[Rfam]
RNA: Small nucleolar RNA SNORA71
RNA sequence: ACCUGCAUCGAAAGUGAUUUUGGCACUUCUAGUGGCCAGGUCAUUGAUACUGCAGGGAAAUUAUUGCAUGACAGUUUUCCCGUGUUUGGAGGUUGUUCCAGCAUACCUACCAAACCCUGUAACUUUCAUACA
Numbered sequence: 001a002c003c004u005g006c007a008u009c010g011a012a013a014g015u016g017a018u019u020u021u022g023g024c025a026c027u028u029c030u031a032g033u034g035g036c037c038a039g040g041u042c043a044u045u046g047a048u049a050c051u052g053c054a055g056g057g058a059a060a061u062u063a064u065u066g067c068a069u070g071a072c073a074g075u076u077u078u079c080c081c082g083u084g085u086u087u088g089g090a091g092g093u094u095g096u097u098c099c100a101g102c103a104u105a106c107c108u109a110c111c112a113a114a115c116c117c118u119g120u121a122a123c124u125u126u127c128a129u130a131c132a
Stems, first nucleotide, its partner, number of pairs: 002056006013045008022037003026034001069128003073124003084115005090108004